[Rfam]
RNA sequence: GGGUGCCACCGCAACAACGCGGCAGGGCAGGUUAAUUUAGCGAAGGUCGGGCCGCCAUCG
Dot-bracket structure: ....(((.((((......))))...)))............(((.(((......))).)))
Numbered sequence: 001g002g003g004u005g006c007c008a009c010c011g012c013a014a015c016a017a018c019g020c021g022g023c024a025g026g027g028c029a030g031g032u033u034a035a036u037u038u039a040g041c042g043a044a045g046g047u048c049g050g051g052c053c054g055c056c057a058u059c060g
Stems, first nucleotide, its partner, number of pairs: 005028003009022004041060003045056003
Record summary:
Rfam assigns this 60-nucleotide sequence from Pseudomonas fragi to the family "nhaA-I RNA". It is annotated as a riboswitch. It is one of the family's seed sequences. About the family: Acidobacteria, Alphaproteobacteria, Betaproteobacteria and Gammaproteobacteria, Verrucomicrobia, cand. division NC10.